[Rfam]
RNA sequence: UGUUGAAGACGGGGGUAACUUUUGAUUUCAAAAGUUUGAGAAAUACUCUUAGAACCUGAUCUAGUUGAAGCUAGCGUAGGGAGAUCUUAUCUUCACAAAA
Numbered sequence: 001u002g003u004u005g006a007a008g009a010c011g012g013g014g015g016u017a018a019c020u021u022u023u024g025a026u027u028u029c030a031a032a033a034g035u036u037u038g039a040g041a042a043a044u045a046c047u048c049u050u051a052g053a054a055c056c057u058g059a060u061c062u063a064g065u066u067g068a069a070g071c072u073a074g075c076g077u078a079g080g081g082a083g084a085u086c087u088u089a090u091c092u093u094c095a096c097a098a099a100a
Stems, first nucleotide, its partner, number of pairs: 006088004011049004016043001017036007055080004061074004
The record is a 100-nucleotide RNA sequence, which matches "TPP riboswitch aptamer (THI element)" in Rfam.
A search with the family's covariance model found it, with a score of 60 bits.